This 386-nucleotide RNA sequence from Allocoleopsis franciscana belongs to the Rfam family "transfer-messenger RNA". Taxonomically the source falls in Allocoleopsis franciscana (Bacteria, Bacillati, Cyanophyceae, Allocoleopsis). The family is grouped with related families in Rfam's "tRNA clan". Bacterial tmRNA, also known as 10Sa RNA or SsrA, is named for its dual tRNA and mRNA-like properties.
RNA sequence: GGGGCCUUAAAGGUUUCGACGUGUUGGCGAAAGCUGCCCCGUGAUACAGGUCGAGAGUGAGUCUCCUCUCGUUAAUAUCGGCUCAAACAAAAAAGUAACUGCGAAUAACAUCGUUAAGUUUGAGCGUGCAGCUGUCGCUGCUUAAAACCCUCUCACAAAGGUACGCUCGUCUAUAGUUUGACUCCGUUAAGGACUAUGGACAAACCCCAACGGAUGCGCUAAUAAAUUGCCUUUGGUCGGUUUAUUGGCAAAGACUUCACCAAAGCAUCCUGUCAUCCGGGAUAAUGGAUGGUUCCCGCCCAGAGGGUCAGAUGGGCUAAGCCUGUGAAUGAGCGGUAGGUUAAUACCCAGGGCGGACACGGGUUCAAUUCCCGUAGGCUCCACUU
Number, nucleotide and partner (000 for none) at each position: 001g382002g381003g380004g379005c378006c377007u376008u000009a000010a000011a000012g000013g000014u000015u000016u000017c000018g000019a000020c355021g354022u353023g000024u351025u350026g349027g348028c000029g000030a000031a000032a000033g000034c339035u338036g337037c336038c335039c000040c333041g000042u331043g330044a000045u328046a000047c325048a324049g323050g322051u321052c071053g070054a069055g068056a067057g000058u085059g084060a083061g082062u081063c080064u000065c000066c000067u056068c055069u054070c053071g052072u000073u000074a000075a000076u000077a000078u000079c000080g063081g062082c061083u060084c059085a058086a000087a000088c000089a000090a000091a000092a000093a000094a000095g000096u000097a000098a000099c000100u000101g000102c000103g000104a000105a000106u000107a000108a000109c000110a000111u000112c000113g000114u000115u000116a000117a000118g000119u000120u000121u000122g000123a000124g000125c000126g000127u000128g000129c000130a000131g000132c000133u157134g156135u155136c000137g153138c000139u000140g150141c000142u000143u000144a000145a000146a000147a000148c000149c000150c140151u000152c000153u137154c000155a135156c134157a133158a000159a000160g000161g000162u000163a000164c000165g000166c000167u000168c000169g000170u200171c199172u198173a197174u196175a195176g194177u193178u192179u191180g000181a000182c000183u213184c212185c000186g000187u210188u209189a000190a000191g179192g178193a177194c176195u175196a174197u173198g172199g171200a170201c000202a000203a000204a000205c000206c000207c000208c000209a188210a187211c000212g184213g183214a000215u000216g000217c000218g249219c248220u247221a246222a245223u244224a243225a242226a241227u000228u000229g270230c000231c000232u267233u000234u265235g000236g000237u000238c000239g000240g000241u226242u225243u224244a223245u222246u221247g220248g219249c218250a000251a000252a000253g000254a000255c000256u000257u000258c000259a000260c000261c000262a000263a000264a000265g234266c000267a232268u000269c000270c229271u000272g308273u307274c306275a000276u304277c303278c000279g301280g300281g299282a000283u000284a000285a000286u000287g317288g000289a000290u314291g000292g313293u312294u000295c000296c000297c000298g000299c281300c280301c279302a000303g277304a276305g000306g274307g273308u272309c000310a000311g000312a293313u292314g290315g000316g000317c287318u000319a000320a000321g051322c050323c049324u048325g047326u000327g000328a045329a000330u043331g042332a000333g040334c000335g038336g037337u036338a035339g034340g000341u000342u000343a000344a000345u000346a000347c000348c027349c026350a025351g024352g000353g022354c021355g020356g000357a000358c000359a375360c374361g373362g372363g371364u000365u000366c000367a000368a000369u000370u000371c363372c362373c361374g360375u359376a007377g006378g005379c004380u003381c002382c001383a000384c000385u000386u000

Rfam classes the family as a non-coding RNA gene. Pairs were carried over by alignment from the consensus structure, which is taken from published work.